[Rfam]
This 56-nucleotide RNA sequence from Robinsoniella sp. KNHs210 belongs to the Rfam family "S4-Clostridia ribosomal protein leader". The base pairs follow the family's consensus structure, which is taken from published work. NCBI's taxonomy places the organism under Bacteria, Bacillati, Bacillota, Lachnospiraceae, Robinsoniella. Rfam classes the family as a cis-regulatory leader.
RNA sequence: GAAAGGUCGUAUUUCAAUGCGGCUGGGCAGGACCAUCUAUCCGUGCCUCAAUUAAG
Dot-bracket structure: ....((((((((....))))))))(((((..............)))))........